[Rfam]
RNA sequence: AGAGGUCACAAGUUUGAGGCCAUAGCAGAAGUGCUUAUAGCACAGCCCUGUCAGAUUUCAAUGAAUCUGUGAAUUUCU
Number, nucleotide and partner (000 for none) at each position: 001a000002g000003a000004g000005g000006u000007c000008a000009c000010a000011a000012g000013u000014u000015u000016g048017a000018g047019g046020c045021c000022a000023u000024a000025g000026c000027a000028g076029a075030a074031g043032u042033g041034c000035u000036u000037a000038u000039a000040g000041c033042a032043c031044a000045g020046c019047c018048c016049u000050g000051u000052c069053a068054g067055a066056u065057u064058u063059c000060a000061a000062u000063g058064a057065a056066u055067c054068u053069g052070u000071g000072a000073a000074u030075u029076u028077c000078u000
The family of this 78-nucleotide sequence from Alligator mississippiensis is "Mammalian CPEB3 ribozyme".
A search with the family's covariance model found it, with a score of 42 bits.
Lineage of the source: Eukaryota > Gnathostomata > Teleostomi > Tetrapoda > Alligator.
Rfam links the family to the GO term RNA nuclease activity.